[Rfam]
RNA: Small nucleolar RNA snR80
Organism: Mollisia scopiformis
RNA sequence: CACCACUUGUCAAACACUCUGGCCCUUACCCCUUUCCCUCGCGGAUCGGUAGCAUCCAUGGUCUGGGCCUAUUUUUGAAGCAAGGAGAUCAAAUCAUGUCCGAUUACUCACCGCGGCGUCCUCCUUCAAGCGUGGACGUAGCGGUCCAUAUCUUUUGGACAACAU
Numbered sequence: 001c002a003c004c005a006c007u008u009g010u011c012a013a014a015c016a017c018u019c020u021g022g023c024c025c026u027u028a029c030c031c032c033u034u035u036c037c038c039u040c041g042c043g044g045a046u047c048g049g050u051a052g053c054a055u056c057c058a059u060g061g062u063c064u065g066g067g068c069c070u071a072u073u074u075u076u077g078a079a080g081c082a083a084g085g086a087g088a089u090c091a092a093a094u095c096a097u098g099u100c101c102g103a104u105u106a107c108u109c110a111c112c113g114c115g116g117c118g119u120c121c122u123c124c125u126u127c128a129a130g131c132g133u134g135g136a137c138g139u140a141g142c143g144g145u146c147c148a149u150a151u152c153u154u155u156u157g158g159a160c161a162a163c164a165u
Base pairs, nucleotide, nucleotide: 007083008082009081021069022068023067024066025065028062029061030060098160099159100158101157111144112143113142114141116139117138118137119136120135121134